[Rfam]
The record is a 72-nucleotide sequence from Cyprinus carpio, which matches "miR-430 microRNA precursor family" in Rfam. A reference for the family is Giraldez et al. (2005), "MicroRNAs regulate brain morphogenesis in zebrafish", Science. Its Rfam clan is "mir-290 clan". The family has 32 seed sequences and 24,817 matches in Rfam 15.1.
RNA sequence: UUAGGUACCCUCACAGUGGCACCAGCUUGUCUGUUGUAUUUGGUAAGUGCUAUUUAUUUGGGGGUAGUUUCA
Numbered sequence: 001u002u003a004g005g006u007a008c009c010c011u012c013a014c015a016g017u018g019g020c021a022c023c024a025g026c027u028u029g030u031c032u033g034u035u036g037u038a039u040u041u042g043g044u045a046a047g048u049g050c051u052a053u054u055u056a057u058u059u060g061g062g063g064g065u066a067g068u069u070u071c072a
Stems, first nucleotide, its partner, number of pairs: 004068001006066006013058001015055002018051005025044003